[Rfam]
RNA sequence: CGUUAAGAGAUUGCCUCUGUCGUUACUUGCAAAUGCAAAUACGGGAAUGCAAUCGUCGA
Numbered sequence: 001c002g003u004u005a006a007g008a009g010a011u012u013g014c015c016u017c018u019g020u021c022g023u024u025a026c027u028u029g030c031a032a033a034u035g036c037a038a039a040u041a042c043g044g045g046a047a048u049g050c051a052a053u054c055g056u057c058g059a
Base pairs, nucleotide, nucleotide: 009054010053011052012051013050014049020044021043022042023041027038028037029036
The family of this 59-nucleotide sequence is "Transposase-1 RNA". The sequence is in the family's curated seed alignment.